[Rfam]
RNA sequence: GACUUGUCCAAAAGUAGUAGAUUAUCUCAACUGAUUGUUCAUAUUCAGUUGCAGGUUAAUCUUGUUCUUGUUUUCCCCUCUUCUCACUACUGCACUAGCCUAGUCUUUU
Numbered sequence: 001g002a003c004u005u006g007u008c009c010a011a012a013a014g015u016a017g018u019a020g021a022u023u024a025u026c027u028c029a030a031c032u033g034a035u036u037g038u039u040c041a042u043a044u045u046c047a048g049u050u051g052c053a054g055g056u057u058a059a060u061c062u063u064g065u066u067c068u069u070g071u072u073u074u075c076c077c078c079u080c081u082u083c084u085c086a087c088u089a090c091u092g093c094a095c096u097a098g099c100c101u102a103g104u105c106u107u108u109u
Base pairs, nucleotide, nucleotide: 001105002104003103004102006100008098011096014093015092016088017087018086019084020083021082043072045070047068048067
RNA: Y RNA
Organism: Callaeas wilsoni